Background: This 129-nucleotide RNA from Notothenia coriiceps belongs to the Rfam family "Small nucleolar RNA ACA64". A search with the family's covariance model found it, with a score of 72 bits. The base pairs follow the family's consensus structure, which was predicted with WAR. The family's RNA type in Rfam is H/ACA-box small nucleolar RNA. The literature on the family includes a 2006 paper in RNA by Schattner et al., "A computational screen for mammalian pseudouridylation guide H/ACA RNAs".
RNA sequence: UCGGUCUGAAAAUGACCUCAGGUGAAACGUGACCUGAGUUCAGAUAACUGAGCCUAAAGUGUCCAGGCGCAUGAAGCUUAUUUCCUGCUCACUCAUUGGCAGAGCGAUAAAACCCAUGUGCCGACAAAA
Numbered sequence: 001u002c003g004g005u006c007u008g009a010a011a012a013u014g015a016c017c018u019c020a021g022g023u024g025a026a027a028c029g030u031g032a033c034c035u036g037a038g039u040u041c042a043g044a045u046a047a048c049u050g051a052g053c054c055u056a057a058a059g060u061g062u063c064c065a066g067g068c069g070c071a072u073g074a075a076g077c078u079u080a081u082u083u084c085c086u087g088c089u090c091a092c093u094c095a096u097u098g099g100c101a102g103a104g105c106g107a108u109a110a111a112a113c114c115c116a117u118g119u120g121c122c123g124a125c126a127a128a129a
Stems, first nucleotide, its partner, number of pairs: 005051002008048001010045001013042003021034003066122001068120005078110005086101003